[Rfam]
Nucleotides: 098
Base pairs, nucleotide, nucleotide: 001098002097003096004095005094006093007092008091009090010089011088012087013086014085015084016083017082018081019080020079021078022077023076024075025074026073027072028071029070030069031068032067033066034065035064036063037062038061039060041058042057043056044055045054046053047052
Number, partner (000 for none) and nucleotide at each position: 001098g002097u003096a004095a005094u006093a007092u008091a009090a010089g011088a012087u013086a014085c015084g016083g017082u018081c019080u020079u021078u022077u023076a024075g025074c026073u027072u028071u029070u030069a031068a032067c033066u034065a035064a036063a037062a038061a039060a040000a041058c042057u043056a044055a045054g046053a047052g048000a049000c050000g051000u052047c053046u054045c055044u056043u057042a058041g059000u060039u061038u062037u063036u064035u065034u066033a067032g068031u069030u070029a071028a072027a073026a074025g075024c076023u077022a078021a079020g080019a081018g082017a083016c084015c085014g086013u087012a088011u089010u090009u091008u092007a093006u094005a095004u096003u097002a098001c